The record is a 60-nucleotide RNA sequence from Rhizobium sp. Root149, which matches "terC RNA" in Rfam.
It is annotated as a cis-regulatory element.
The base pairs follow the family's consensus structure, which is taken from published work.
A search with the family's covariance model found it, with a score of 62 bits.

RNA sequence: CCGCUGGUCCGGGCCCCUCUGGUGAAGGUUACGGCGCCUUCACGAUGUCGGACCCUUUUG
Numbered sequence: 001c002c003g004c005u006g007g008u009c010c011g012g013g014c015c016c017c018u019c020u021g022g023u024g025a026a027g028g029u030u031a032c033g034g035c036g037c038c039u040u041c042a043c044g045a046u047g048u049c050g051g052a053c054c055c056u057u058u059u060g
Base pairs, nucleotide, nucleotide: 006054007053008052009051010050011049012048022043023042024041025040026039027038028037029036